[Rfam]
Background:
A member of the RNA family "Small nucleolar RNA U109" from Equus asinus, 130 nucleotides long. The match comes from Rfam's covariance-model search (61 bits). Rfam classes the family as an H/ACA-box small nucleolar RNA. Gene Ontology terms of the family: RNA processing and nucleolus. The family has 26 seed sequences and 1,405 matches in Rfam 15.1. On this family, see Gu et al., Nucleic Acids Res 2005: "A novel experimental approach for systematic identification of box H/ACA snoRNAs from eukaryotes".
RNA sequence: UUGGAUGGGCGGUGCUCCUUCUCUUUAAAGAACACGGAUUUAUCCAGACCAUGCGGCAUGAAUGAAAUGAGUUUUCAGGGCUGACAACCUCUCAGUUAAGGUUUUGCGGCAGUAUAUUUCUAAUACAAUA
Numbered sequence: 001u002u003g004g005a006u007g008g009g010c011g012g013u014g015c016u017c018c019u020u021c022u023c024u025u026u027a028a029a030g031a032a033c034a035c036g037g038a039u040u041u042a043u044c045c046a047g048a049c050c051a052u053g054c055g056g057c058a059u060g061a062a063u064g065a066a067a068u069g070a071g072u073u074u075u076c077a078g079g080g081c082u083g084a085c086a087a088c089c090u091c092u093c094a095g096u097u098a099a100g101g102u103u104u105u106g107c108g109g110c111a112g113u114a115u116a117u118u119u120c121u122a123a124u125a126c127a128a129u130a
Stems, first nucleotide, its partner, number of pairs: 003054001005052004012035003016031002068123001070121002080110002086103005